The record is a 249-nucleotide RNA sequence from Ornithorhynchus anatinus, which matches "Small nucleolar RNA SNORA53" in Rfam.
Rfam's curators write: The snoRNA ACA53 belongs to the H/ACA family of pseudouridylation guide snoRNAs.
Taxonomically the source falls in Ornithorhynchus (Eukaryota, Tetrapoda, Amniota, Ornithorhynchidae).
Pairs were carried over by alignment from the consensus structure, which was predicted with RNAalifold.
The sequence is in the family's curated seed alignment.
By type it is an H/ACA-box small nucleolar RNA.
The family has 28 seed sequences and 1,090 matches in Rfam 15.1.
RNA sequence: AACAUGCUUCCUUAGAUCCACCUUUGUGGUUGCCCACCUUGAACUGAGUUCCGCCAGUUAAACUCUUUGUUUCUGGUAGUUCCAGUCAAGAGGCAUCCGGCAACUUCUUUGGUUGUACAGUCAAAGGUGCUUGAGUCAUUGGCAUGUAAGAGAAAUAUACCUGCAUGUUAGUCAUACGUUCUGAUUGCAAGUGACAGCAGCAUUGCGUGUCAUUUCUCACGAUCAGAGCCUGACUGGUGUGCGGACACU
Numbered sequence: 001a002a003c004a005u006g007c008u009u010c011c012u013u014a015g016a017u018c019c020a021c022c023u024u025u026g027u028g029g030u031u032g033c034c035c036a037c038c039u040u041g042a043a044c045u046g047a048g049u050u051c052c053g054c055c056a057g058u059u060a061a062a063c064u065c066u067u068u069g070u071u072u073c074u075g076g077u078a079g080u081u082c083c084a085g086u087c088a089a090g091a092g093g094c095a096u097c098c099g100g101c102a103a104c105u106u107c108u109u110u111g112g113u114u115g116u117a118c119a120g121u122c123a124a125a126g127g128u129g130c131u132u133g134a135g136u137c138a139u140u141g142g143c144a145u146g147u148a149a150g151a152g153a154a155a156u157a158u159a160c161c162u163g164c165a166u167g168u169u170a171g172u173c174a175u176a177c178g179u180u181c182u183g184a185u186u187g188c189a190a191g192u193g194a195c196a197g198c199a200g201c202a203u204u205g206c207g208u209g210u211c212a213u214u215u216c217u218c219a220c221g222a223u224c225a226g227a228g229c230c231u232g233a234c235u236g237g238u239g240u241g242c243g244g245a246c247a248c249u
Stems, first nucleotide, its partner, number of pairs: 002147007011135005019129008027099003031095002038090003043086004048082001051079001053077002057073001060072004100116006161244005168237001170235004180227008192219003196215001197210003